The family of this 74-nucleotide RNA sequence from Ruminococcaceae bacterium YAD3003 is "tRNA". By type it is a transfer RNA. Transfer RNA (tRNA) molecules are approximately 80 nucleotides in length.

RNA sequence: GGGCCUUUAGCUCAGUUGGUCAGAGCUCCCGGCUCAUAACCGGUUGGUCCUGGGUUCGAGUCCCCGAAGGCCCA
Numbered sequence: 001g002g003g004c005c006u007u008u009a010g011c012u013c014a015g016u017u018g019g020u021c022a023g024a025g026c027u028c029c030c031g032g033c034u035c036a037u038a039a040c041c042g043g044u045u046g047g048u049c050c051u052g053g054g055u056u057c058g059a060g061u062c063c064c065c066g067a068a069g070g071c072c073c074a
Stems, first nucleotide, its partner, number of pairs: 001073007010026004029043004050066001052064003
Dot-bracket structure: (((((((..((((.........))))..((((.......))))......(.(((.......))).)))))))).